RNA sequence: CCGACGGGCCGUGACUGGCGCGCUGGGAUGGGACGGACCAUCGGGGAGCGGUCCUGGCGAGACCGUGUGCCGUGCGCCUGGGCCGAACCG
Numbered sequence: 001c002c003g004a005c006g007g008g009c010c011g012u013g014a015c016u017g018g019c020g021c022g023c024u025g026g027g028a029u030g031g032g033a034c035g036g037a038c039c040a041u042c043g044g045g046g047a048g049c050g051g052u053c054c055u056g057g058c059g060a061g062a063c064c065g066u067g068u069g070c071c072g073u074g075c076g077c078c079u080g081g082g083c084c085g086a087a088c089c090g
Base pairs, nucleotide, nucleotide: 006054007053008052009051010050011049012048015045016044017078018077019076020075021074028041029040030039031038069083070082071081
A member of the RNA family "ZMP/ZTP riboswitch aptamer (pfl RNA motif)" from Streptomyces bungoensis, 90 nucleotides long. The source organism's lineage runs through Bacteria, Bacillati, Actinomycetota, Streptomycetaceae and Streptomyces. Gene Ontology terms of the family: regulation of purine nucleotide biosynthetic process and one-carbon metabolic process.